[Rfam]
Nucleotides: 117
Stems, first nucleotide, its partner, number of pairs: 003080004009068008018060002029055008097117001099116004
Number, partner (000 for none) and nucleotide at each position: 001000u002000u003080a004079c005078u006077c007000u008000g009068g010067u011066g012065u013064u014063u015062c016061c017000u018060c019059a020000u021000u022000c023000g024000c025000g026000g027000a028000u029055a030054a031053a032052u033051c034050u035049u036048u037000c038000g039000c040000c041000u042000u043000u044000u045000a046000c047000u048036a049035a050034a051033g052032a053031u054030u055029u056000c057000c058000a059019u060018g061016g062015g063014a064013g065012g066011c067010a068009c069000a070000g071000u072000a073000c074000a075000a076000u077006g078005a079004g080003u081000c082000u083000u084000g085000c086000c087000u088000c089000a090000u091000u092000u093000u094000u095000u096000c097117a098000g099116c100115u101114c102113u103000a104000a105000c106000u107000a108000c109000g110000g111000a112000c113102g114101g115100a116099g117097u
The record is a 117-nucleotide RNA sequence from Trichobilharzia regenti, which matches "U5 spliceosomal RNA" in Rfam. Rfam describes the family as follows. U5 RNA is a component of both types of known spliceosome. The precise function of this molecule is unknown, though it is known that the 5' loop is required for splice site selection and p220 binding, and that both the 3' stem-loop and the Sm site are important for Sm protein binding and cap methylation. Rfam 15.1 lists 28,527 matches to the family in 2,489 species. It is annotated as a spliceosomal small nuclear RNA. Lineage of the source: Eukaryota > Eumetazoa > Rhabditophora > Trematoda > Trichobilharzia.